[Rfam]
RNA sequence: UGACGGCGGUUCCUCCUCCUGUCAUCAGUCUGGCAGGAGGAUUUUACGCCGUCACAGAGAAACGGGUCUGAUUCACCCAGAGCUGAACGUCAUGGUUACGCCAUGACACACACACUUCUCUGGAUUUUGCGGGACCCGACACAC
Number, nucleotide and partner (000 for none) at each position: 001u054002g053003a052004c051005g050006g049007c048008g047009g000010u000011u000012c000013c000014u041015c040016c039017u038018c037019c000020u035021g034022u033023c032024a000025u000026c000027a000028g000029u000030c000031u000032g023033g022034c021035a020036g000037g018038a017039g016040g015041a014042u000043u000044u000045u000046a000047c008048g007049c006050c005051g004052u003053c002054a001055c000056a000057g000058a000059g000060a000061a000062a000063c000064g000065g136066g135067u134068c133069u132070g000071a000072u000073u000074c000075a000076c000077c123078c122079a121080g120081a119082g118083c000084u000085g000086a000087a000088c000089g000090u000091c000092a000093u000094g000095g000096u000097u000098a000099c000100g000101c000102c000103a000104u000105g000106a000107c000108a000109c000110a000111c000112a000113c000114a000115c000116u000117u000118c082119u081120c080121u079122g078123g077124a000125u000126u000127u000128u000129g000130c000131g000132g069133g068134a067135c066136c065137c000138g000139a000140c000141a000142c000143a000144c000
RNA: Small nucleolar RNA SNORA79